[Rfam]
RNA: mir-203 microRNA precursor family
Organism: Clupea harengus
RNA sequence: GCUUAUUUGGUCGAGUGGUUCUUAACAGUUCAACAGUGCUUUGCCAGAAUUGUGAAAUGUUUAGGACCACUUGAUCAGGU
Numbered sequence: 001g002c003u004u005a006u007u008u009g010g011u012c013g014a015g016u017g018g019u020u021c022u023u024a025a026c027a028g029u030u031c032a033a034c035a036g037u038g039c040u041u042u043g044c045c046a047g048a049a050u051u052g053u054g055a056a057a058u059g060u061u062u063a064g065g066a067c068c069a070c071u072u073g074a075u076c077a078g079g080u
Stems, first nucleotide, its partner, number of pairs: 014071006021064002024061004029056004